[Rfam]
RNA sequence: AAGCAUGACGGAGGCGCAACCAACAUCAUUAACUUCCGACAGGGCGGGGAAAUCCUUUAGGGAUGCCCGGAAGCGAAAGGGGAGGUUGCCGAGGAUGCGGAUCUUUCCCAAAGAUUUGCAUCCGGGCGAACGGAAAAUAUCCGUUCGACUGUCGCUAUCGCGGAGAGCUGUCAUGACG
Numbered sequence: 001a002a003g004c005a006u007g008a009c010g011g012a013g014g015c016g017c018a019a020c021c022a023a024c025a026u027c028a029u030u031a032a033c034u035u036c037c038g039a040c041a042g043g044g045c046g047g048g049g050a051a052a053u054c055c056u057u058u059a060g061g062g063a064u065g066c067c068c069g070g071a072a073g074c075g076a077a078a079g080g081g082g083a084g085g086u087u088g089c090c091g092a093g094g095a096u097g098c099g100g101a102u103c104u105u106u107c108c109c110a111a112a113g114a115u116u117u118g119c120a121u122c123c124g125g126g127c128g129a130a131c132g133g134a135a136a137a138u139a140u141c142c143g144u145u146c147g148a149c150u151g152u153c154g155c156u157a158u159c160g161c162g163g164a165g166a167g168c169u170g171u172c173a174u175g176a177c178g
Stems, first nucleotide, its partner, number of pairs: 006173006016089006024081001033073006093123012124150002127147008152163004